Rfam assigns this 93-nucleotide RNA sequence from Nicotiana tabacum to the family "MIR6152 microRNA precursor family". The source organism's lineage runs through Eukaryota, Viridiplantae, eudicotyledons, asterids and Nicotiana. A search with the family's covariance model found it, with a score of 78 bits. Rfam links the family to the GO terms miRNA-mediated post-transcriptional gene silencing and RISC complex.

RNA sequence: UGGGCAUAUUAUUGUAUUCGACUGUAAUCAUAACGUGAAAUAGGGGAUUACACUUUUAAACGGAAAGUGAAUCAAUUAGCAUAAUAGACUCUU
Numbered sequence: 001u002g003g004g005c006a007u008a009u010u011a012u013u014g015u016a017u018u019c020g021a022c023u024g025u026a027a028u029c030a031u032a033a034c035g036u037g038a039a040a041u042a043g044g045g046g047a048u049u050a051c052a053c054u055u056u057u058a059a060a061c062g063g064a065a066a067g068u069g070a071a072u073c074a075a076u077u078a079g080c081a082u083a084a085u086a087g088a089c090u091c092u093u
Stems, first nucleotide, its partner, number of pairs: 002092003009087007017079002020077002023074002026072001028070004034062003037055001042054002